[Rfam]
RNA sequence: GACAGUUUGCCAACACUCUGGUGCUUAGUUCAAAUUUUUUUUUAUAAGUUUGAGCCAUACUAUGUUCCUAUUUUGGUGCAAACAAGAUUCAUUGUUGCUAACUACUCACCAAGAUAUACUUUAGAAACAAGAAACAAGAAAAAAUUUCCAUUUGAUCAAUUCUUCGGUUUUGAUUCGGUUAUUUUUUUUUUUAAUUUUCAUUGUCAAAUAUAGUUAUAUUGGUCCAUUUCACUAGCACAUAU
Numbered sequence: 001g002a003c004a005g006u007u008u009g010c011c012a013a014c015a016c017u018c019u020g021g022u023g024c025u026u027a028g029u030u031c032a033a034a035u036u037u038u039u040u041u042u043u044a045u046a047a048g049u050u051u052g053a054g055c056c057a058u059a060c061u062a063u064g065u066u067c068c069u070a071u072u073u074u075g076g077u078g079c080a081a082a083c084a085a086g087a088u089u090c091a092u093u094g095u096u097g098c099u100a101a102c103u104a105c106u107c108a109c110c111a112a113g114a115u116a117u118a119c120u121u122u123a124g125a126a127a128c129a130a131g132a133a134a135c136a137a138g139a140a141a142a143a144a145u146u147u148c149c150a151u152u153u154g155a156u157c158a159a160u161u162c163u164u165c166g167g168u169u170u171u172g173a174u175u176c177g178g179u180u181a182u183u184u185u186u187u188u189u190u191u192u193a194a195u196u197u198u199c200a201u202u203g204u205c206a207a208a209u210a211u212a213g214u215u216a217u218a219u220u221g222g223u224c225c226a227u228u229u230c231a232c233u234a235g236c237a238c239a240u241a242u
Stems, first nucleotide, its partner, number of pairs: 007081003020068002023065002026062004096237004109222004114217003118214003